[Rfam]
Nucleotides: 091
Stems, first nucleotide, its partner, number of pairs: 003090004010082001013079002016076001018075002021072001023068004029064002032061003035056009
Number, partner (000 for none) and nucleotide at each position: 001000a002000c003090a004089c005088c006087u007000g008000g009000u010082a011000a012000c013079u014078g015000c016076g017000a018075g019074a020000c021072c022000a023068u024067g025066g026065u027000a028000u029064g030063u031000a032061g033060a034059g035056a036055u037054a038053a039052a040051a041050g042049c043048u044000a045000c046000u047000c048043g049042g050041u051040u052039u053038u054037u055036a056035u057000c058000u059034c060033u061032c062000c063030a064029u065026a066025c067024c068023a069000u070000a071000a072021g073000a074019u075018c076016c077000a078014c079013a080000u081000c082010u083000c084000c085000u086000g087006a088005g089004g090003u091000g